[Rfam]
The family of this 400-nucleotide RNA sequence from Salipiger mucosus is "Bacterial RNase P class A". The organism belongs to Salipiger mucosus, within Bacteria. Rfam classes the family as a ribozyme.

RNA sequence: GCGGAGGGCCGGGCGGCCGCUGCCUGCAAGGGCAGAGGAAAGUCCGGACUCGCCGAAGCGCCGGUGCCGGGUAACGCCCGGGCAGGGCAACCUGACGGAAAGCGCCACAGAGAACAGACCGCUCCGGAUGCGUCCGGAGUCAGGGUGAAACGGUGGGGUAAGGGCCCACCGGGGGGCGGGCAACCGUCGCCGCAUGGCAAGCCCCACCGGGAGCAAUGCCAAAUAGGGAUCCCGCGCGGGAUUGAUCGCUUCGGCGAUAUCGCCGCAGGGCCGCUUCGGCCCGAGGGAUCCGGGUUGGCAGCAUGAGCCCGCGGGCGACCGCGGGCCGAGAUGAAUGGUCGCCUGUCGGGCGGGGCAACUCGUCCGGCAACAGAAUCCGGCUUACAGGCCCUCCGCGCGC
Numbered sequence: 001g002c003g004g005a006g007g008g009c010c011g012g013g014c015g016g017c018c019g020c021u022g023c024c025u026g027c028a029a030g031g032g033c034a035g036a037g038g039a040a041a042g043u044c045c046g047g048a049c050u051c052g053c054c055g056a057a058g059c060g061c062c063g064g065u066g067c068c069g070g071g072u073a074a075c076g077c078c079c080g081g082g083c084a085g086g087g088c089a090a091c092c093u094g095a096c097g098g099a100a101a102g103c104g105c106c107a108c109a110g111a112g113a114a115c116a117g118a119c120c121g122c123u124c125c126g127g128a129u130g131c132g133u134c135c136g137g138a139g140u141c142a143g144g145g146u147g148a149a150a151c152g153g154u155g156g157g158g159u160a161a162g163g164g165c166c167c168a169c170c171g172g173g174g175g176g177c178g179g180g181c182a183a184c185c186g187u188c189g190c191c192g193c194a195u196g197g198c199a200a201g202c203c204c205c206a207c208c209g210g211g212a213g214c215a216a217u218g219c220c221a222a223a224u225a226g227g228g229a230u231c232c233c234g235c236g237c238g239g240g241a242u243u244g245a246u247c248g249c250u251u252c253g254g255c256g257a258u259a260u261c262g263c264c265g266c267a268g269g270g271c272c273g274c275u276u277c278g279g280c281c282c283g284a285g286g287g288a289u290c291c292g293g294g295u296u297g298g299c300a301g302c303a304u305g306a307g308c309c310c311g312c313g314g315g316c317g318a319c320c321g322c323g324g325g326c327c328g329a330g331a332u333g334a335a336u337g338g339u340c341g342c343c344u345g346u347c348g349g350g351c352g353g354g355g356c357a358a359c360u361c362g363u364c365c366g367g368c369a370a371c372a373g374a375a376u377c378c379g380g381c382u383u384a385c386a387g388g389c390c391c392u393c394c395g396c397g398c399g400c
Stems, first nucleotide, its partner, number of pairs: 001396010011385001012343007020035006040383003044380005049213003053210001058276001060274001062209005067081005082096001083094004097204002102202002104198003119144002121140008152170006171193001172191002175188005217300004227291006268282005307326008

A search with the family's covariance model found it, with a score of 264 bits. Rfam describes the family as follows. Ribonuclease P (RNase P) is a ubiquitous endoribonuclease, found in archaea, bacteria and eukarya as well as chloroplasts and mitochondria.